[Rfam]
RNA sequence: UGUCAGGCCCUGUAUGACGUGAGCGCUCCGAACCCCGUCAGGUCCGGGAGGAAGCAGCGGUAGGAGCUGCUCCCGUGUGUACGGUACGCCUGGCAGGU
Numbered sequence: 001u002g003u004c005a006g007g008c009c010c011u012g013u014a015u016g017a018c019g020u021g022a023g024c025g026c027u028c029c030g031a032a033c034c035c036c037g038u039c040a041g042g043u044c045c046g047g048g049a050g051g052a053a054g055c056a057g058c059g060g061u062a063g064g065a066g067c068u069g070c071u072c073c074c075g076u077g078u079g080u081a082c083g084g085u086a087c088g089c090c091u092g093g094c095a096g097g098u
Base pairs, nucleotide, nucleotide: 004092005091006090007089008088010084011083012082013081014080015077017076018075019074021072022071025067026066027065028064029063035060036059037058038057043052044051045050
About this RNA: Bacterial small signal recognition particle RNA: a 98-nucleotide RNA sequence from Winmispira thermophila. Rfam describes the family as follows. The signal recognition particle (SRP) is a universally conserved ribonucleoprotein involved in the co-translational targeting of proteins to membranes. Its Rfam clan is "SRP clan". The source organism's lineage runs through Bacteria, Pseudomonadati, Spirochaetota, Winmispira and Winmispira thermophila. By type it is a non-coding RNA gene. A reference for the family is Rosenblad et al. (2003), "SRPDB: Signal Recognition Particle Database", Nucleic Acids Res. Pairs were carried over by alignment from the consensus structure, which is taken from published work.